RNA sequence: UUGGUAGUGCUGAGUGGAAGACUAGUGAUUUUGUUGUGACAUUGUUUGAAGAACAACAAGUCCCAGUCUGCCUCUCAGCACGACCAG
Numbered sequence: 001u002u003g004g005u006a007g008u009g010c011u012g013a014g015u016g017g018a019a020g021a022c023u024a025g026u027g028a029u030u031u032u033g034u035u036g037u038g039a040c041a042u043u044g045u046u047u048g049a050a051g052a053a054c055a056a057c058a059a060g061u062c063c064c065a066g067u068c069u070g071c072c073u074c075u076c077a078g079c080a081c082g083a084c085c086a087g
Base pairs, nucleotide, nucleotide: 002086003085004084005083007081008080010078011077012076013075014074016072017071019069020068021067022066023065025064027062028061029060030059031058033057034056035055036054037053
RNA: mir-7 microRNA precursor family
Organism: Cynoglossus semilaevis